[Rfam]
RNA sequence: GCGGAGCUGCCCGGUGCGUCAGGCAAGACAUCCCCUGGGCCGUUAAGCACUUCCCUCGGGAGCUGGCUCUGUCCGGGCCCUGGUCCGGAUAUCUGGCACCCACCUGCACUUGCAGGCCUUGGGAGGAUGCAAACGCCAACGGCCAGGGUGGCUCCACC
Numbered sequence: 001g002c003g004g005a006g007c008u009g010c011c012c013g014g015u016g017c018g019u020c021a022g023g024c025a026a027g028a029c030a031u032c033c034c035c036u037g038g039g040c041c042g043u044u045a046a047g048c049a050c051u052u053c054c055c056u057c058g059g060g061a062g063c064u065g066g067c068u069c070u071g072u073c074c075g076g077g078c079c080c081u082g083g084u085c086c087g088g089a090u091a092u093c094u095g096g097c098a099c100c101c102a103c104c105u106g107c108a109c110u111u112g113c114a115g116g117c118c119u120u121g122g123g124a125g126g127a128u129g130c131a132a133a134c135g136c137c138a139a140c141g142g143c144c145a146g147g148g149u150g151g152c153u154c155c156a157c158c
Stems, first nucleotide, its partner, number of pairs: 003155009013144003017141003031127003034123001036121003039117003058101003062097005071090008